[Rfam]
RNA sequence: AUGCAUGUUAACCGAGGUCUGUGGCUCUUAACAUAGCUGCAGGGUCUCCAACAGCAUGCAAGAAUAAUGGAGGGGCUUUGACAGCUUGGACCUGCAGUGUCUGUAGCAGUCACUCAACCCUUGUACAGAG
Dot-bracket structure: ...........(....(.(((((........))))).)...)...........................(((((.........((.((((.........)))).....)).......)))))........
Small nucleolar RNA SNORA44: a 130-nucleotide RNA sequence from Geotrypetes seraphini.
Rfam links the family to the GO terms RNA processing and nucleolus.
ACA44 is a member of the H/ACA class of snoRNA that guide the sites of modification of uridines to pseudouridines.
By type it is an H/ACA-box small nucleolar RNA.
The match comes from Rfam's covariance-model search (74 bits).
The family has 27 seed sequences and 1,056 matches in Rfam 15.1.